[Rfam]
RNA: S4-Flavobacteria ribosomal protein leader
RNA sequence: UGUUAUAGAAGGAUUAGUUAGACCUUAAUUCAUAACA
Numbered sequence: 001u002g003u004u005a006u007a008g009a010a011g012g013a014u015u016a017g018u019u020a021g022a023c024c025u026u027a028a029u030u031c032a033u034a035a036c037a
Stems, first nucleotide, its partner, number of pairs: 001037006008031001009026004